The record is a 668-nucleotide RNA sequence from Arabidopsis lyrata, which matches "MIR824 microRNA precursor family" in Rfam. For this family Rfam cites "A diverse and evolutionarily fluid set of microRNAs in Arabidopsis thaliana" (Rajagopalan et al., Genes Dev, 2006). A search with the family's covariance model found it, with a score of 653 bits.
RNA sequence: CUUGAGUUGUCUCUCAUGUCUAGACCAUUUGUGAGAAGGGAGUUUUUGUUUGCACCAAUACCCACCAAUCUCUAAGUUUGUAAGAAGUAUUAUGCUCAAUUAAGGAAAAUAGCUAGUUCAACUUACCACACUACCCUUUUACAAACUAUCCUAUAUGUUAGAUGCUAGCAUGGCGUAAUUUUGUGUUCUCAUUCUGCAGCAGGGUUAGUUUCUUGUGUACCUCUAGAUAUUUAUUCUCUUGCUGCGUAGGGUUCCCAAGCUGCCAAAAACUUUUCAAAAUUAGAGAUCUGUUCCCCACUAACCCCCAUCCAAUAAGGAAGGUCUACCUGUAUGUAGCUCACAGCUAUUAAAGCUGUGCUCGCGUCUUGGUUUUACUGUUUUAGUUACCCCAUGAAAUCUGAUCCUUCAGAAGUUAGGUAUAGAAGUAAGUCGAUUAAGUUCAUUCAUGACUUUUCCAGAUGUUGCACAGAUAACUUUUUUAUUUGUAUUAUAACUAGUCCAAGCCGAUUCUCGAAAUCAUAUAAAAUCAUUUACACCUUGGUCAUGGUAGCCAAGAAUUUGUAUCUUACACUAGGUUUCCUAAUAAAUAAAAAUGGGGAGUGGGGAGGUGUUUGGUUAUAUUCCCUUCUCAUCGAUGGUCUAGAUGUGCGAGGUGACUCUCAUGGAGG
Numbered sequence: 001c002u003u004g005a006g007u008u009g010u011c012u013c014u015c016a017u018g019u020c021u022a023g024a025c026c027a028u029u030u031g032u033g034a035g036a037a038g039g040g041a042g043u044u045u046u047u048g049u050u051u052g053c054a055c056c057a058a059u060a061c062c063c064a065c066c067a068a069u070c071u072c073u074a075a076g077u078u079u080g081u082a083a084g085a086a087g088u089a090u091u092a093u094g095c096u097c098a099a100u101u102a103a104g105g106a107a108a109a110u111a112g113c114u115a116g117u118u119c120a121a122c123u124u125a126c127c128a129c130a131c132u133a134c135c136c137u138u139u140u141a142c143a144a145a146c147u148a149u150c151c152u153a154u155a156u157g158u159u160a161g162a163u164g165c166u167a168g169c170a171u172g173g174c175g176u177a178a179u180u181u182u183g184u185g186u187u188c189u190c191a192u193u194c195u196g197c198a199g200c201a202g203g204g205u206u207a208g209u210u211u212c213u214u215g216u217g218u219a220c221c222u223c224u225a226g227a228u229a230u231u232u233a234u235u236c237u238c239u240u241g242c243u244g245c246g247u248a249g250g251g252u253u254c255c256c257a258a259g260c261u262g263c264c265a266a267a268a269a270c271u272u273u274u275c276a277a278a279a280u281u282a283g284a285g286a287u288c289u290g291u292u293c294c295c296c297a298c299u300a301a302c303c304c305c306c307a308u309c310c311a312a313u314a315a316g317g318a319a320g321g322u323c324u325a326c327c328u329g330u331a332u333g334u335a336g337c338u339c340a341c342a343g344c345u346a347u348u349a350a351a352g353c354u355g356u357g358c359u360c361g362c363g364u365c366u367u368g369g370u371u372u373u374a375c376u377g378u379u380u381u382a383g384u385u386a387c388c389c390c391a392u393g394a395a396a397u398c399u400g401a402u403c404c405u406u407c408a409g410a411a412g413u414u415a416g417g418u419a420u421a422g423a424a425g426u427a428a429g430u431c432g433a434u435u436a437a438g439u440u441c442a443u444u445c446a447u448g449a450c451u452u453u454u455c456c457a458g459a460u461g462u463u464g465c466a467c468a469g470a471u472a473a474c475u476u477u478u479u480u481a482u483u484u485g486u487a488u489u490a491u492a493a494c495u496a497g498u499c500c501a502a503g504c505c506g507a508u509u510c511u512c513g514a515a516a517u518c519a520u521a522u523a524a525a526a527u528c529a530u531u532u533a534c535a536c537c538u539u540g541g542u543c544a545u546g547g548u549a550g551c552c553a554a555g556a557a558u559u560u561g562u563a564u565c566u567u568a569c570a571c572u573a574g575g576u577u578u579c580c581u582a583a584u585a586a587a588u589a590a591a592a593a594u595g596g597g598g599a600g601u602g603g604g605g606a607g608g609u610g611u612u613u614g615g616u617u618a619u620a621u622u623c624c625c626u627u628c629u630c631a632u633c634g635a636u637g638g639u640c641u642a643g644a645u646g647u648g649c650g651a652g653g654u655g656a657c658u659c660u661c662a663u664g665g666a667g668g
Stems, first nucleotide, its partner, number of pairs: 001667003004659010015648015031632013052611005066602002071599003